[Rfam]
RNA sequence: AUUCCUUCUAUCGUGUAUUCCCGAUUAAUGCAGCCUCUGAUGCUUAA
Numbered sequence: 001a002u003u004c005c006u007u008c009u010a011u012c013g014u015g016u017a018u019u020c021c022c023g024a025u026u027a028a029u030g031c032a033g034c035c036u037c038u039g040a041u042g043c044u045u046a047a
Base pairs, nucleotide, nucleotide: 010025011024012023013022032044033043034042
RNA: Plastid-ycf3 group II-D1 intron